[Rfam]
The record is an 84-nucleotide RNA sequence from Miscanthus lutarioriparius, which matches "Small nucleolar RNA SNORD34" in Rfam. The family's RNA type in Rfam is C/D-box small nucleolar RNA. From the family's description: snoRNA U34 is found in intron 5 of the ribosomal protein L13a gene in humans. Taxonomically the source falls in Miscanthus (Eukaryota, Viridiplantae, Liliopsida, Andropogoneae). The family is grouped with related families in Rfam's "SNORD34 clan".
RNA sequence: UGUAGCCUAUGAUGAGUUGCAGAAUUAUUUGCCUACAUUGUUUGAGUAAAACAUUGAUAUUAUCUGCAAAGUUCUGAGGCUAUU
Numbered sequence: 001u002g003u004a005g006c007c008u009a010u011g012a013u014g015a016g017u018u019g020c021a022g023a024a025u026u027a028u029u030u031g032c033c034u035a036c037a038u039u040g041u042u043u044g045a046g047u048a049a050a051a052c053a054u055u056g057a058u059a060u061u062a063u064c065u066g067c068a069a070a071g072u073u074c075u076g077a078g079g080c081u082a083u084u
Base pairs, nucleotide, nucleotide: 002083004081005080006079007078